[Rfam]
RNA sequence: CUAUAUGCAGUGGACCAGGAUGGCAAGGGCUCUACUGUCCUUUCAGGAGAGCCCUUGCCAUCCUGGUCCACUGCAUAUAG
Numbered sequence: 001c002u003a004u005a006u007g008c009a010g011u012g013g014a015c016c017a018g019g020a021u022g023g024c025a026a027g028g029g030c031u032c033u034a035c036u037g038u039c040c041u042u043u044c045a046g047g048a049g050a051g052c053c054c055u056u057g058c059c060a061u062c063c064u065g066g067u068c069c070a071c072u073g074c075a076u077a078u079a080g
Base pairs, nucleotide, nucleotide: 001080002079003078004077005076006075007074008073009072010071011070012069013068014067015066016065017064018063019062020061021060022059023058024057025056026055027054028053029052030051031050032049033048035046036045037044

This 80-nucleotide sequence from Homo sapiens belongs to the Rfam family "mir-4776 microRNA precursor family". The family has 2 seed sequences and 24 matches in Rfam 15.1. The family's consensus secondary structure was predicted with RNAalifold. The sequence is in the family's curated seed alignment.